This 203-nucleotide RNA from Fictibacillus macauensis belongs to the Rfam family "Bacillus sRNA ncr1575". Pairs were carried over by alignment from the consensus structure, which is taken from published work. For this family Rfam cites "Identification of regulatory RNAs in Bacillus subtilis" (Irnov et al., Nucleic Acids Res, 2010). A search with the family's covariance model found it, with a score of 106 bits.

[Rfam]
RNA sequence: ACAACAACAACAGAAGGGAUGAUGGGUGGCCGAUGAAGUACUAAUCUUAUUUCUAACAUUUGAAAUCAAUACAUUUCAAAUUGUGACAAAUUGGAUUAGUCUGCCCAAAAUCAUCUCUUAACGUUGCCUACGCUACGUUUAUUUCACUAUGAUUAUUGAUUAGGCAGUGCUAAUCCUCCCCUAGAACCCGGGAGGAUUUUUUU
Number, nucleotide and partner (000 for none) at each position: 001a000002c000003a000004a000005c000006a000007a000008c000009a000010a000011c000012a000013g000014a000015a000016g112017g111018g000019a000020u000021g000022a000023u107024g106025g105026g104027u000028g000029g101030c000031c099032g000033a000034u000035g000036a000037a000038g000039u000040a000041c000042u098043a097044a096045u095046c094047u093048u000049a091050u090051u089052u088053c000054u086055a000056a000057c000058a081059u080060u079061u078062g077063a076064a075065a074066u073067c000068a000069a000070u000071a000072c000073a066074u065075u064076u063077c062078a061079a060080a059081u058082u000083g000084u000085g000086a054087c000088a052089a051090a050091u049092u000093g047094g046095a045096u044097u043098a042099g031100u000101c029102u000103g000104c026105c025106c024107a023108a000109a000110a000111u017112c016113a000114u000115c000116u000117c000118u000119u000120a000121a000122c000123g000124u149125u000126g000127c000128c000129u000130a000131c000132g000133c000134u000135a000136c000137g000138u000139u000140u000141a000142u000143u000144u000145c000146a000147c000148u000149a124150u000151g000152a000153u000154u000155a000156u000157u000158g000159a000160u000161u000162a000163g000164g000165c000166a000167g000168u000169g000170c000171u000172a198173a197174u196175c195176c194177u193178c192179c191180c190181c000182u000183a000184g000185a000186a000187c000188c000189c000190g180191g179192g178193a177194g176195g175196a174197u173198u172199u000200u000201u000202u000203u000